[Rfam]
RNA sequence: ACUCCUGUAGCCCAACUGGAAGAGGCGGCUGUCUCAAAAACAGUCUGUGUACGGGUUCAACUCCCGUCAGGAGUA
Numbered sequence: 001a002c003u004c005c006u007g008u009a010g011c012c013c014a015a016c017u018g019g020a021a022g023a024g025g026c027g028g029c030u031g032u033c034u035c036a037a038a039a040a041c042a043g044u045c046u047g048u049g050u051a052c053g054g055g056u057u058c059a060a061c062u063c064c065c066g067u068c069a070g071g072a073g074u075a
Stems, first nucleotide, its partner, number of pairs: 001074007010026003028044005051067005
RNA: tRNA
Organism: Nostoc sp. FACHB-888